[Rfam]
RNA sequence: GGGAAAUUAGCUCAAUGGUAGAGCAGUCGUUUUACACACGGAUUGUUGAAUGUUCAAGUCAUUUAUUUCCCA
Numbered sequence: 001g002g003g004a005a006a007u008u009a010g011c012u013c014a015a016u017g018g019u020a021g022a023g024c025a026g027u028c029g030u031u032u033u034a035c036a037c038a039c040g041g042a043u044u045g046u047u048g049a050a051u052g053u054u055c056a057a058g059u060c061a062u063u064u065a066u067u068u069c070c071c072a
Base pairs, nucleotide, nucleotide: 001071002070003069004068005067006066007065010024011023012022013021027041028040029039030038048064049063050062051061052060